[Rfam]
Guanidine-I riboswitch aptamer: a 103-nucleotide RNA from Sinanaerobacter chloroacetimidivorans.
Pairs were carried over by alignment from the consensus structure.
A search with the family's covariance model found it, with a score of 93 bits.
RNA sequence: UAAUUAGUUUUAUAGGGUUCCGCAGUUUCAUUGAAAACUGGUCUGGUCCGAGAUAAAACGUACAGAUGAGCUGUAUACACGGAAGGACAAAAGCCUGGGAGAU
Numbered sequence: 001u002a003a004u005u006a007g008u009u010u011u012a013u014a015g016g017g018u019u020c021c022g023c024a025g026u027u028u029c030a031u032u033g034a035a036a037a038c039u040g041g042u043c044u045g046g047u048c049c050g051a052g053a054u055a056a057a058a059c060g061u062a063c064a065g066a067u068g069a070g071c072u073g074u075a076u077a078c079a080c081g082g083a084a085g086g087a088c089a090a091a092a093g094c095c096u097g098g099g100a101g102a103u
Stems, first nucleotide, its partner, number of pairs: 007059006015049002020046002022043001023040006060076006078098001080101001084096003